[Rfam]
RNA sequence: UUUACUUUACGUAUACAAAUUCAUAUAAUUCUCAUAAUAUGGGUGAGAAGUUUCUACUAAUGACCGAUAAUCAUUGUCUAUGAAGAAAGUGUAUCUAGGG
Numbered sequence: 001u002u003u004a005c006u007u008u009a010c011g012u013a014u015a016c017a018a019a020u021u022c023a024u025a026u027a028a029u030u031c032u033c034a035u036a037a038u039a040u041g042g043g044u045g046a047g048a049a050g051u052u053u054c055u056a057c058u059a060a061u062g063a064c065c066g067a068u069a070a071u072c073a074u075u076g077u078c079u080a081u082g083a084a085g086a087a088a089g090u091g092u093a094u095c096u097a098g099g100g
Stems, first nucleotide, its partner, number of pairs: 020084006029049007058076006
Rfam assigns this 100-nucleotide RNA from Atopostipes suicloacalis to the family "Purine riboswitch aptamer". Its family is annotated with purine nucleobase biosynthetic process in the Gene Ontology.